[Rfam]
RNA sequence: GUCCUCUAUUCUUGGCGCUCUGAUAGUUAAUGCCAAUUAUCAGAAGUGUAUGCGUAUUUAUGGAGGUAGAGCAUGUUGUUCCAAGUGGCGCAAUCGUCGAAUCUUCUUCGGUGUCAGGUGCAUAUACUAUCCUGAUAUCAUCCUCUGGAUUCGAAACACAC
Numbered sequence: 001g002u003c004c005u006c007u008a009u010u011c012u013u014g015g016c017g018c019u020c021u022g023a024u025a026g027u028u029a030a031u032g033c034c035a036a037u038u039a040u041c042a043g044a045a046g047u048g049u050a051u052g053c054g055u056a057u058u059u060a061u062g063g064a065g066g067u068a069g070a071g072c073a074u075g076u077u078g079u080u081c082c083a084a085g086u087g088g089c090g091c092a093a094u095c096g097u098c099g100a101a102u103c104u105u106c107u108u109c110g111g112u113g114u115c116a117g118g119u120g121c122a123u124a125u126a127c128u129a130u131c132c133u134g135a136u137a138u139c140a141u142c143c144u145c146u147g148g149a150u151u152c153g154a155a156a157c158a159c160a161c
Base pairs, nucleotide, nucleotide: 003066004065005064006063007062008061009060015049016048017047018046097154098153099152100151101150102149103148104147110139111138114135115134116133117132118131
Nematode snoRNA ceN88: a 161-nucleotide sequence from Thelazia callipaeda. Its family is annotated with RNA processing and nucleolus in the Gene Ontology. It is annotated as an H/ACA-box small nucleolar RNA. Taxonomically the source falls in Thelazia (Eukaryota, Ecdysozoa, Nematoda, Spiruromorpha).